[Rfam]
RNA sequence: GCUGGGAAUGGUGGCGCAUUCCUGUAACUCCAGUGACUUGGAGAGCUUAGGUCGGUGGACGAGUGGCUGGCAGGGUCACUGGGUGUUGUAAGGCUAUGUUGAUCGGACGUCCGCACUAAGCUCUGCGUCAAUAUGGUCACCUUGGGAGAACCUUGGGUGACCAGGUUGAUUUAAUGAGAAGUGUAACGGCUCAGGACGGAAACGUAGCAGGCAAAAGCUUCCGCGUUGAGUAGUAGUGGGAUCGCGUCUGUGAGUAGUCAACAGCAUCUAGCCUGUCCGGUCCAUUUGGACCCGAACCUUUU
Numbered sequence: 001g002c003u004g005g006g007a008a009u010g011g012u013g014g015c016g017c018a019u020u021c022c023u024g025u026a027a028c029u030c031c032a033g034u035g036a037c038u039u040g041g042a043g044a045g046c047u048u049a050g051g052u053c054g055g056u057g058g059a060c061g062a063g064u065g066g067c068u069g070g071c072a073g074g075g076u077c078a079c080u081g082g083g084u085g086u087u088g089u090a091a092g093g094c095u096a097u098g099u100u101g102a103u104c105g106g107a108c109g110u111c112c113g114c115a116c117u118a119a120g121c122u123c124u125g126c127g128u129c130a131a132u133a134u135g136g137u138c139a140c141c142u143u144g145g146g147a148g149a150a151c152c153u154u155g156g157g158u159g160a161c162c163a164g165g166u167u168g169a170u171u172u173a174a175u176g177a178g179a180a181g182u183g184u185a186a187c188g189g190c191u192c193a194g195g196a197c198g199g200a201a202a203c204g205u206a207g208c209a210g211g212c213a214a215a216a217g218c219u220u221c222c223g224c225g226u227u228g229a230g231u232a233g234u235a236g237u238g239g240g241a242u243c244g245c246g247u248c249u250g251u252g253a254g255u256a257g258u259c260a261a262c263a264g265c266a267u268c269u270a271g272c273c274u275g276u277c278c279g280g281u282c283c284a285u286u287u288g289g290a291c292c293c294g295a296a297c298c299u300u301u302u
Base pairs, nucleotide, nucleotide: 001046002045003044004023005022006021007020008019009018010017028043029042030041049299050298051297052295053294054293055292060288061287062286063285064284065283067279069277070276071275072274073273074272079271080270081269082268083267084266085265086264087263088262089261093258094257095256096255097254099252104250105249106248107247108246109245110244111240112239114238115237116236117235118234120231121230122229123228125226126225127224128223129168130167131166132165134163135162136161137160138159139158140157141156142155144153145152146151170176178221179220180219181218182217189212190211191210196205197204198203
Background: Rfam assigns this 302-nucleotide sequence from Tetranychus urticae to the family "Metazoan signal recognition particle RNA". A reference for the family is Wild et al. (2002), "Towards the structure of the mammalian signal recognition particle", Curr Opin Struct Biol. Pairs were carried over by alignment from the consensus structure, which is taken from published work. The signal recognition particle (SRP) is a universally conserved ribonucleoprotein. It is involved in the co-translational targeting of proteins to membranes.